[Rfam]
RNA: mir-574 microRNA precursor family
RNA sequence: AGGCCCUGAAAGAGAGGCAGGGUCUAAUCCACAGCCUCAGUGGCAGCUGUGGAUCAACCGUUGCCUCUCUCUUUCUCUCCA
Numbered sequence: 001a002g003g004c005c006c007u008g009a010a011a012g013a014g015a016g017g018c019a020g021g022g023u024c025u026a027a028u029c030c031a032c033a034g035c036c037u038c039a040g041u042g043g044c045a046g047c048u049g050u051g052g053a054u055c056a057a058c059c060g061u062u063g064c065c066u067c068u069c070u071c072u073u074u075c076u077c078u079c080c081a
Stems, first nucleotide, its partner, number of pairs: 008073002011070010022059001025056001027054003032049004